The family of this 152-nucleotide RNA sequence from a Bradyrhizobiaceae bacterium is "FMN riboswitch aptamer (RFN element)".
RNA sequence: UUUCGUUCUCAGGGCGGGGUGAAAAUCCCCACCGGCGGUAAUCGAGCGCAAGCUCGGGAGCCCGCGAGCGCCUGACGGUCGUGCCGUCAGGGUCAGCAGAUCCGGUGCGAUGCCGGAGCCGACGGUCAUAGUCCGGAUGAAAGAGAACGGGU
Dot-bracket structure: ..((((((((......(((.......))).[[((((((.....................[[))))..((..........................))...(((((.......)))))]])).(((.....]]))).......))))))))..
The organism belongs to Nitrobacteraceae, within Bacteria.